The record is a 139-nucleotide sequence from Coptis chinensis, which matches "Small nucleolar RNA snoR111" in Rfam. Rfam 15.1 lists 533 matches to the family in 223 species. The match comes from Rfam's covariance-model search (56 bits).

[Rfam]
RNA sequence: GGUCUUUUAAGAGAAACAACACUUGCUUGUGUCUCUUUGUAUAAGGAAAACAGAGGAAGAGUGACACGGCGAGAUAUUGGAGAUAUUGUUUCAGUUGCCUUUUUUGUUGAUUGGCAAUUCAAUUGUUGCUUGUCUUCAU
Numbered sequence: 001g002g003u004c005u006u007u008u009a010a011g012a013g014a015a016a017c018a019a020c021a022c023u024u025g026c027u028u029g030u031g032u033c034u035c036u037u038u039g040u041a042u043a044a045g046g047a048a049a050a051c052a053g054a055g056g057a058a059g060a061g062u063g064a065c066a067c068g069g070c071g072a073g074a075u076a077u078u079g080g081a082g083a084u085a086u087u088g089u090u091u092c093a094g095u096u097g098c099c100u101u102u103u104u105u106g107u108u109g110a111u112u113g114g115c116a117a118u119u120c121a122a123u124u125g126u127u128g129c130u131u132g133u134c135u136u137c138a139u
Stems, first nucleotide, its partner, number of pairs: 006043001008041002011038001013035002016032003079134001080131003085123004094118006102110002
On this family, see Marker et al., Curr Biol 2002: "Experimental RNomics: identification of 140 candidates for small non-messenger RNAs in the plant Arabidopsis thaliana".